[Rfam]
Nucleotides: 075
Stems, first nucleotide, its partner, number of pairs: 014043004020075007027039002047064006
Number, partner (000 for none) and nucleotide at each position: 001000g002000g003000u004000g005000c006000a007000a008000u009000u010000u011000c012000a013000a014043g015042g016041c017040c018000a019000c020075a021074g022073c023072a024071g025070a026069a027039g028038g029000a030000c031000u032000u033000a034000c035000g036000g037000c038028c039027u040017g041016g042015c043014c044000u045000g046000u047064c048063a049062g050061a051060u052059u053000c054000c055000a056000a057000c058000a059052a060051a061050u062049c063048u064047g065000c066000a067000a068000a069026u070025u071024c072023u073022g074021u075020u
Shown here is a 75-nucleotide sequence from Crocodylus porosus, a member of the family "Mammalian CPEB3 ribozyme". About the family: The mammalian CPEB3 ribozyme is a self cleaving RNA located in the second intron of the CPEB3 gene which belongs to a family of genes regulating messenger RNA polyadenylation. The literature on the family includes a 2006 paper in Science by Salehi-Ashtiani et al., "A genomewide search for ribozymes reveals an HDV-like sequence in the human CPEB3 gene".